RNA sequence: GGCCAACCUUCGGGGGGGCUUUUACCAUGGGCGGGGAAACUCGUCGAACACACAAACGGAAGUCAGAAA
Numbered sequence: 001g002g003c004c005a006a007c008c009u010u011c012g013g014g015g016g017g018g019c020u021u022u023u024a025c026c027a028u029g030g031g032c033g034g035g036g037a038a039a040c041u042c043g044u045c046g047a048a049c050a051c052a053c054a055a056a057c058g059g060a061a062g063u064c065a066g067a068a069a
Base pairs, nucleotide, nucleotide: 001020002019003018004017007016008015009014030045031044032043033042034041035040
RNA: L2-Alphaproteobacteria ribosomal protein leader